[Rfam]
RNA sequence: GGAAAAUAAAUAUGUAACUAUAUUACUUACAUAUUUAUUUUC
Numbered sequence: 001g002g003a004a005a006a007u008a009a010a011u012a013u014g015u016a017a018c019u020a021u022a023u024u025a026c027u028u029a030c031a032u033a034u035u036u037a038u039u040u041u042c
Stems, first nucleotide, its partner, number of pairs: 001042002005039013
Background:
Infectious bronchitis virus D-RNA: a 42-nucleotide RNA from Leptobrachium leishanense. It scores 37 bits against the family's covariance model. It is annotated as a cis-regulatory element. About the family: This family represents a cis-regulatory element known as defective RNA or D-RNA. This region is thought to be essential for viral replication and efficient packaging. Rfam links the family to the GO terms viral genome packaging and viral genome replication. A reference for the family is Dalton et al. (2001), "cis-acting sequences required for coronavirus infectious bronchitis virus defective-RNA replication and packaging", J Virol.